The record is a 148-nucleotide RNA from Mangrovibacillus cuniculi, which matches "FMN riboswitch aptamer (RFN element)" in Rfam. A search with the family's covariance model found it, with a score of 117 bits.
RNA sequence: GAUGUUUCUCGGGGCAGGGUGAAAUUCCCAACCGGCGGUGAUGAAGGAAACUUCUUAGUCCGUGACCCGUGCACAGAGUGAGACUCGUGCCGGUGGAUUUGGUGCAACUCCAAAGCCGACAGUAUAGUCUGGAUGGGAGAGAAACGGU
Dot-bracket structure: ..((((((((......(((.......))).[[((((((...................[[))))...((.......................))....(((((.......)))))]])).(((....]]))).......))))))))..
Numbered sequence: 001g002a003u004g005u006u007u008c009u010c011g012g013g014g015c016a017g018g019g020u021g022a023a024a025u026u027c028c029c030a031a032c033c034g035g036c037g038g039u040g041a042u043g044a045a046g047g048a049a050a051c052u053u054c055u056u057a058g059u060c061c062g063u064g065a066c067c068c069g070u071g072c073a074c075a076g077a078g079u080g081a082g083a084c085u086c087g088u089g090c091c092g093g094u095g096g097a098u099u100u101g102g103u104g105c106a107a108c109u110c111c112a113a114a115g116c117c118g119a120c121a122g123u124a125u126a127g128u129c130u131g132g133a134u135g136g137g138a139g140a141g142a143a144a145c146g147g148u
Stems, first nucleotide, its partner, number of pairs: 003146008017029003031128002033118002035063004058116002067093002098114005120131003